[Rfam]
RNA sequence: CGCUGGCUGAGACAUCACAGGCUCAUCAACUUGGGGGAUUUUUGUGAGUCUGAGAGGUAAGCGCCGCGGCCUGUCUUUCCGGACCUGCCCUUCGCCUUGUCUGCUUUGCCUGCUGACCCCGGGCCCUGUACCUUCAGAUCAGUAACCUCGGUGCGCUCGGGUGCUGUGGCCUGUGGCUGGAUUGCCUGUGACGUCCUGCCAGCCUGCCGACCGACUGGCCUACGGCGCCGGCAAGAUGAAGCUGUCCCUGGUGGCUGCGGUGCUGCUG
Number, nucleotide and partner (000 for none) at each position: 001c000002g000003c000004u257005g256006g255007c254008u253009g252010a000011g000012a000013c000014a000015u000016c163017a162018c161019a000020g000021g000022c000023u000024c000025a000026u000027c000028a000029a000030c000031u122032u121033g000034g120035g119036g118037g117038a000039u000040u000041u000042u000043u000044g000045u000046g000047a000048g000049u000050c000051u000052g000053a000054g000055a000056g000057g000058u000059a000060a000061g109062c108063g107064c000065c000066g104067c103068g102069g101070c000071c000072u000073g000074u000075c000076u000077u000078u000079c000080c000081g000082g000083a000084c000085c000086u000087g000088c000089c000090c000091u000092u000093c000094g000095c000096c000097u000098u000099g000100u000101c069102u068103g067104c066105u000106u000107u063108g062109c061110c000111u000112g000113c000114u000115g000116a000117c037118c036119c035120c034121g032122g031123g000124c000125c000126c000127u000128g000129u000130a000131c000132c000133u000134u000135c000136a000137g000138a000139u000140c000141a000142g000143u000144a000145a000146c000147c000148u000149c000150g000151g000152u000153g000154c000155g000156c000157u000158c000159g000160g000161g018162u017163g016164c000165u000166g000167u179168g178169g177170c176171c175172u000173g000174u000175g171176g170177c169178u168179g167180g000181a000182u000183u000184g000185c000186c000187u000188g000189u000190g000191a000192c000193g000194u000195c000196c000197u000198g000199c000200c000201a000202g000203c000204c000205u000206g000207c000208c000209g000210a000211c000212c000213g000214a000215c000216u000217g000218g000219c000220c000221u000222a000223c000224g000225g000226c000227g000228c000229c000230g000231g000232c000233a000234a000235g000236a000237u000238g000239a000240a000241g000242c000243u000244g000245u000246c000247c000248c000249u000250g000251g000252u009253g008254g007255c006256u005257g004258c000259g000260g000261u000262g000263c000264u000265g000266c000267u000268g000

The family of this 268-nucleotide RNA from Mustela putorius is "bip internal ribosome entry site (IRES)". It scores 167 bits against the family's covariance model. Rfam describes the family as follows. This family represents the bip internal ribosome entry site (IRES). BiP protein expression has been found to be significantly enhanced by the heat shock response due to IRES-dependent translation. It is thought that this translational mechanism is essential for the survival of cells under stress. The organism belongs to Mustela putorius, within Eukaryota.